[Rfam]
RNA sequence: AAGCAGGAAAAGUUACAGUAUGGCUGUGAAGUGUCAUGUUGUCGUUCCCCCUGCUUACAGCAACCAGAUUCAUACUAUCCCUGUCUGUUUAGACCCUAUAGCAGCCAGGGACGCUUGGUCUCGUACAU
Numbered sequence: 001a002a003g004c005a006g007g008a009a010a011a012g013u014u015a016c017a018g019u020a021u022g023g024c025u026g027u028g029a030a031g032u033g034u035c036a037u038g039u040u041g042u043c044g045u046u047c048c049c050c051c052u053g054c055u056u057a058c059a060g061c062a063a064c065c066a067g068a069u070u071c072a073u074a075c076u077a078u079c080c081c082u083g084u085c086u087g088u089u090u091a092g093a094c095c096c097u098a099u100a101g102c103a104g105c106c107a108g109g110g111a112c113g114c115u116u117g118g119u120c121u122c123g124u125a126c127a128u
Base pairs, nucleotide, nucleotide: 003054004053005052006051007050015042016041017040018039019038020037021036022035023034024033080109081108082107083106085104086103087102088101
Shown here is a 128-nucleotide RNA from Microcaecilia unicolor, a member of the family "Small nucleolar RNA SNORA63". The family's RNA type in Rfam is H/ACA-box small nucleolar RNA. Rfam describes the family as follows. E3 belongs to the H/ACA class of snoRNAs and is involved in the processing of eukaryotic pre-rRNA and has regions of complementarity to 18S rRNA. E3 is encoded in introns in the gene for protein synthesis initiation factor 4AII. A reference for the family is Mishra and Eliceiri (1997), "Three small nucleolar RNAs that are involved in ribosomal RNA precursor processing", Proc Natl Acad Sci U S A. Gene Ontology terms of the family: RNA processing and nucleolus.